[Rfam]
RNA sequence: GUGCAGGGACGGCCUUGCUUUCUUCUAUCCGGAUGAGGACGGCCUCA
Numbered sequence: 001g002u003g004c005a006g007g008g009a010c011g012g013c014c015u016u017g018c019u020u021u022c023u024u025c026u027a028u029c030c031g032g033a034u035g036a037g038g039a040c041g042g043c044c045u046c047a
Stems, first nucleotide, its partner, number of pairs: 001020001003018006034047005

Guanidine-II riboswitch aptamer (mini-ykkC): a 47-nucleotide RNA sequence from Chelativorans sp. BNC1.